[Rfam]
RNA sequence: ACCUCGACGCGACUGGCGCGGUCAAGGUGGAUCACCACCGGGGAGCGAACGACAGUCCGGACACCGCGCGCCUGGGUGGACGGG
Numbered sequence: 001a002c003c004u005c006g007a008c009g010c011g012a013c014u015g016g017c018g019c020g021g022u023c024a025a026g027g028u029g030g031a032u033c034a035c036c037a038c039c040g041g042g043g044a045g046c047g048a049a050c051g052a053c054a055g056u057c058c059g060g061a062c063a064c065c066g067c068g069c070g071c072c073u074g075g076g077u078g079g080a081c082g083g084g
Base pairs, nucleotide, nucleotide: 004052005051006050008047009046010045013042014041015072016071017070018069019068027038028037029036030035062078063077064076065075

Annotation
The family of this 84-nucleotide sequence from Actinomadura verrucosospora is "ZMP/ZTP riboswitch aptamer (pfl RNA motif)". It scores 44 bits against the family's covariance model.